[Rfam]
RNA: Enterobacterial sRNA STnc340
Organism: Salmonella enterica
RNA sequence: AAGAUCUAUUUAGCGUAUAGUACGAUAGCAAUUAAUAAACCAUGCAGGUAGUCCAAAUAAGGACUUCAUCUUUACCUGGAAAUCUGAUUUAAAAAAGGCCGCUUAAUAAUAAGCGGCCUGUAUUAGUGUU
Numbered sequence: 001a002a003g004a005u006c007u008a009u010u011u012a013g014c015g016u017a018u019a020g021u022a023c024g025a026u027a028g029c030a031a032u033u034a035a036u037a038a039a040c041c042a043u044g045c046a047g048g049u050a051g052u053c054c055a056a057a058u059a060a061g062g063a064c065u066u067c068a069u070c071u072u073u074a075c076c077u078g079g080a081a082a083u084c085u086g087a088u089u090u091a092a093a094a095a096a097g098g099c100c101g102c103u104u105a106a107u108a109a110u111a112a113g114c115g116g117c118c119u120g121u122a123u124u125a126g127u128g129u130u
Stems, first nucleotide, its partner, number of pairs: 050065005095119001097118009
Dot-bracket structure: .................................................(((((......))))).............................(.(((((((((....))))))))))...........